[Rfam]
Nucleotides: 085
Base pairs, nucleotide, nucleotide: 003081004080005079006078007077009051010050011049012048013047014046015045016044054082060072061071062070
Number, partner (000 for none) and nucleotide at each position: 001000a002000u003081c004080g005079u006078u007077c008000a009051u010050c011049u012048u013047c014046g015045c016044u017000a018000g019000a020000g021000c022000g023000c024000a025000c026000c027000u028000g029000a030000a031000a032000a033000c034000u035000u036000g037000g038000g039000u040000g041000a042000g043000c044016a045015g046014c047013g048012a049011a050010g051009a052000c053000g054082g055000a056000a057000g058000u059000a060072g061071g062070g063000c064000a065000g066000u067000u068000g069000u070062c071061c072060c073000g074000a075000a076000g077007g078006a079005a080004c081003g082054c083000g084000c085000c
Rfam assigns this 85-nucleotide RNA sequence from Thermosynechococcus vestitus to the family "Glutamine riboswitch aptamer (glnA leader)". The literature on the family includes a 2011 paper in RNA Biol by Ames and Breaker, "Bacterial aptamers that selectively bind glutamine". The organism belongs to Thermosynechococcus vestitus, within Bacteria.